[Rfam]
RNA sequence: AUGGCGGUUACCGAAAAGCCUAAUAGUAAACAGAGUAGGUA
Numbered sequence: 001a002u003g004g005c006g007g008u009u010a011c012c013g014a015a016a017a018g019c020c021u022a023a024u025a026g027u028a029a030a031c032a033g034a035g036u037a038g039g040u041a
Stems, first nucleotide, its partner, number of pairs: 003020003010040003
The record is a 41-nucleotide RNA, which matches "DUF805b RNA" in Rfam. The family's consensus secondary structure is taken from published work. By type it is a cis-regulatory element.